[Rfam]
RNA sequence: GCCCUGCUGUACCGAACUGUCUCCGUAUGGUGUGCGUUCCAUGGGUUCACAUGGAUAGGUCAGCAGGGCGCAC
Numbered sequence: 001g002c003c004c005u006g007c008u009g010u011a012c013c014g015a016a017c018u019g020u021c022u023c024c025g026u027a028u029g030g031u032g033u034g035c036g037u038u039c040c041a042u043g044g045g046u047u048c049a050c051a052u053g054g055a056u057a058g059g060u061c062a063g064c065a066g067g068g069c070g071c072a073c
Stems, first nucleotide, its partner, number of pairs: 001069007009061001011060003018036003021032001023030002038055005
A member of the RNA family "DUF3800-IX RNA" from Rhodobacteraceae bacterium KLH11, 73 nucleotides long. Pairs were carried over by alignment from the consensus structure, which is taken from published work. The sequence is in the family's curated seed alignment. Rfam's curators write: Actinobacteria, Firmicutes (1 example), Nitrospirae, Proteobacteria, Verrucomicrobia (1 example). By type it is a small RNA.